[Rfam]
RNA: DUF3800-V RNA
RNA sequence: UGAAGCGGGUAAAACGUCCUAUCGGUGUUCCUCGAUGUUCCCCUGCGGAGCGGGGUCUAAGUCGAGGGGUGAUGCUGGUAGGUGCCGCUUCU
Numbered sequence: 001u002g003a004a005g006c007g008g009g010u011a012a013a014a015c016g017u018c019c020u021a022u023c024g025g026u027g028u029u030c031c032u033c034g035a036u037g038u039u040c041c042c043c044u045g046c047g048g049a050g051c052g053g054g055g056u057c058u059a060a061g062u063c064g065a066g067g068g069g070u071g072a073u074g075c076u077g078g079u080a081g082g083u084g085c086c087g088c089u090u091c092u
Base pairs, nucleotide, nucleotide: 002091003090004089005088006087009085010084023077024076025075026074027073028072029071030067031066032065033064034063035062036061041055042054043053044052045051046050